[Rfam]
RNA sequence: CCUAGGGGGUCGACCGCGAUUACCCCGUGAGGCCUCGGCUGAAACAUCGCGUCCAUGUCCUCUUCAGAGGCGGACGCCGCCAUG
Number, nucleotide and partner (000 for none) at each position: 001c000002c000003u000004a000005g000006g026007g025008g024009g023010u022011c000012g000013a000014c000015c000016g000017c000018g000019a000020u000021u000022a010023c009024c008025c007026c006027g000028u000029g000030a000031g000032g000033c000034c000035u000036c000037g000038g000039c000040u000041g000042a000043a000044a000045c000046a000047u000048c000049g077050c076051g075052u074053c073054c072055a000056u000057g000058u000059c000060c000061u000062c000063u000064u000065c000066a000067g000068a000069g000070g000071c000072g054073g053074a052075c051076g050077c049078c000079g000080c000081c000082a000083u000084g000
RNA: chrB-a RNA